Shown here is a 125-nucleotide RNA sequence from Zapornia atra, a member of the family "Phenylalanine leader peptide". Its family is annotated with cellular amino acid metabolic process in the Gene Ontology. The family's RNA type in Rfam is cis-regulatory leader. The match comes from Rfam's covariance-model search (61 bits).
RNA sequence: GUUGGGGCUUCUCUUUUUUUUUUUUUUUUUUUUUUUUUCCCCCCCAAAAGAGGGGGAGAAAAAUUUAAGGAAAAAAAAAAAAAAAAAAAACAAACCCAAAAACCUUUUGAGGUUGUUUUUUUUUU
Numbered sequence: 001g002u003u004g005g006g007g008c009u010u011c012u013c014u015u016u017u018u019u020u021u022u023u024u025u026u027u028u029u030u031u032u033u034u035u036u037u038u039c040c041c042c043c044c045c046a047a048a049a050g051a052g053g054g055g056g057a058g059a060a061a062a063a064u065u066u067a068a069g070g071a072a073a074a075a076a077a078a079a080a081a082a083a084a085a086a087a088a089a090a091c092a093a094a095c096c097c098a099a100a101a102a103c104c105u106u107u108u109g110a111g112g113u114u115g116u117u118u119u120u121u122u123u124u125u
Stems, first nucleotide, its partner, number of pairs: 016093002020090014035075004041056004058066003098119004102113004
Rfam 15.1 lists 379 matches to the family in 290 species.